Rfam assigns this 36-nucleotide RNA from Pan troglodytes to the family "Iron response element I". The match comes from Rfam's covariance-model search (44 bits). The family has 62 seed sequences and 6,829 matches in Rfam 15.1. Lineage of the source: Eukaryota > Teleostomi > Euteleostomi > Theria > Pan. Its family is annotated with response to iron ion in the Gene Ontology. By type it is a cis-regulatory element. The base pairs follow the family's consensus structure, which is taken from published work. The literature on the family includes a 1987 paper in Science by Hentze et al., "Identification of the iron-responsive element for the translational regulation of human ferritin mRNA".

RNA sequence: UGGUUUCCUGCUUCAGCAGUGCUUGGAUGGAACCCG
Numbered sequence: 001u002g003g004u005u006u007c008c009u010g011c012u013u014c015a016g017c018a019g020u021g022c023u024u025g026g027a028u029g030g031a032a033c034c035c036g
Stems, first nucleotide, its partner, number of pairs: 001036003005032004010028001012027005017021001